Bacterial RNase P class A: a 326-nucleotide sequence from Wolinella succinogenes. The family's consensus secondary structure is taken from published work. The family's RNA type in Rfam is ribozyme.

RNA sequence: AGGGCGUGGCGGACGGUUGCUUCUGCUCCAAGAAGAGGAAAGUCCGAGCUGCAUUGAGACAGGGUUCCAUCUAACGGAUGGCUAUCGUAAGAUAAGGGAAAGUGCAACAGAGAAGAGACCGCCGAGUCAUCGGUAAGGGUGAAACGGAGGUGUAAGAGACCCCCGGAGUCCUAGCAAUAGGAGUCGCAUGGUAAACCCAACCCGCAGCAAGAAGGAUCUGGUUAAAGUCUCAAAACUUCGAAUCCUUCGCUUUAUCGCUAUUGUGAAAUAGUCGAAUAGAUGAAUAGCCGUCAUAACAGAACUCGGCUUACGGCCACGCCCCUCUC
Numbered sequence: 001a002g003g004g005c006g007u008g009g010c011g012g013a014c015g016g017u018u019g020c021u022u023c024u025g026c027u028c029c030a031a032g033a034a035g036a037g038g039a040a041a042g043u044c045c046g047a048g049c050u051g052c053a054u055u056g057a058g059a060c061a062g063g064g065u066u067c068c069a070u071c072u073a074a075c076g077g078a079u080g081g082c083u084a085u086c087g088u089a090a091g092a093u094a095a096g097g098g099a100a101a102g103u104g105c106a107a108c109a110g111a112g113a114a115g116a117g118a119c120c121g122c123c124g125a126g127u128c129a130u131c132g133g134u135a136a137g138g139g140u141g142a143a144a145c146g147g148a149g150g151u152g153u154a155a156g157a158g159a160c161c162c163c164c165g166g167a168g169u170c171c172u173a174g175c176a177a178u179a180g181g182a183g184u185c186g187c188a189u190g191g192u193a194a195a196c197c198c199a200a201c202c203c204g205c206a207g208c209a210a211g212a213a214g215g216a217u218c219u220g221g222u223u224a225a226a227g228u229c230u231c232a233a234a235a236c237u238u239c240g241a242a243u244c245c246u247u248c249g250c251u252u253u254a255u256c257g258c259u260a261u262u263g264u265g266a267a268a269u270a271g272u273c274g275a276a277u278a279g280a281u282g283a284a285u286a287g288c289c290g291u292c293a294u295a296a297c298a299g300a301a302c303u304c305g306g307c308u309u310a311c312g313g314c315c316a317c318g319c320c321c322c323u324c325u326c
Stems, first nucleotide, its partner, number of pairs: 002321009011311001012292007020035005040309003044306005049207004062203005067081005082096001083094004097198002102196002104192002119138002121134005146164002149161003165187001166185002169182005211248004221239001226237003255275003258271005